[Rfam]
RNA sequence: AUUCUGUCCUAAGUACUAGCGCCGCAGGAGUGUGACCAGUGCUCGCAAUCACUCCUGCAGCCUUGGUGCUUACUAUGGGAC
Numbered sequence: 001a002u003u004c005u006g007u008c009c010u011a012a013g014u015a016c017u018a019g020c021g022c023c024g025c026a027g028g029a030g031u032g033u034g035a036c037c038a039g040u041g042c043u044c045g046c047a048a049u050c051a052c053u054c055c056u057g058c059a060g061c062c063u064u065g066g067u068g069c070u071u072a073c074u075a076u077g078g079g080a081c
Base pairs, nucleotide, nucleotide: 002080003079004078005077006076007075010072011071012070013069014068015067016066017065018064019063024058025057026056027055028054029053030052031051032050
The record is an 81-nucleotide RNA from Dinothrombium tinctorium, which matches "mir-252 microRNA precursor family" in Rfam.
Clan: mir-252 microRNA precursor family.
For this family Rfam cites "Direct sequencing and expression analysis of a large number of miRNAs in Aedes aegypti and a multi-species survey of novel mosquito miRNAs" (Li et al., BMC Genomics, 2009).
NCBI's taxonomy places the organism under Eukaryota, Opisthokonta, Protostomia, Anystina, Dinothrombium.